[Rfam]
RNA: mir-44 microRNA precursor family
RNA sequence: CAAACACCAUUGUGGAUGUUUCUUUCAGUCAUAUGUCAAAUUUAAAUACCUUACGACUAGAGAAACAUUCAGCAUUGGUUGCGGU
Numbered sequence: 001c002a003a004a005c006a007c008c009a010u011u012g013u014g015g016a017u018g019u020u021u022c023u024u025u026c027a028g029u030c031a032u033a034u035g036u037c038a039a040a041u042u043u044a045a046a047u048a049c050c051u052u053a054c055g056a057c058u059a060g061a062g063a064a065a066c067a068u069u070c071a072g073c074a075u076u077g078g079u080u081g082c083g084g085u
Stems, first nucleotide, its partner, number of pairs: 006079004013071008023062001027058004032053002